[Rfam]
RNA sequence: GUAGAUGCUCAUUCCGUUUGUUAUGCUCGCUUCGGCUUCAUAAAACCUGGGAAUGAUGCAGAGCCAUUUACGGUACUUGUUGUCCACCCGUCAGCCAUUAUUACUGGCAGAUGACCGGACAUUACGUUGAGUCAUGUACCCCCUGUUAUCUUAACGACCCGAUUUUACGCCUGCCUUAUGGCAGGCGUUUUUUU
Numbered sequence: 001g002u003a004g005a006u007g008c009u010c011a012u013u014c015c016g017u018u019u020g021u022u023a024u025g026c027u028c029g030c031u032u033c034g035g036c037u038u039c040a041u042a043a044a045a046c047c048u049g050g051g052a053a054u055g056a057u058g059c060a061g062a063g064c065c066a067u068u069u070a071c072g073g074u075a076c077u078u079g080u081u082g083u084c085c086a087c088c089c090g091u092c093a094g095c096c097a098u099u100a101u102u103a104c105u106g107g108c109a110g111a112u113g114a115c116c117g118g119a120c121a122u123u124a125c126g127u128u129g130a131g132u133c134a135u136g137u138a139c140c141c142c143c144u145g146u147u148a149u150c151u152u153a154a155c156g157a158c159c160c161g162a163u164u165u166u167a168c169g170c171c172u173g174c175c176u177u178a179u180g181g182c183a184g185g186c187g188u189u190u191u192u193u194u
Base pairs, nucleotide, nucleotide: 001064002063006060007059008058009056010055011054012053015051017050019042020041027035029033072140073139074138075137076136078134082120083119084118085117094108095107096106097105149157150156167188168187169186170185171184172183173182174181175180
RNA: GlmZ RNA activator of glmS mRNA
Organism: Erwinia sp. OLSSP12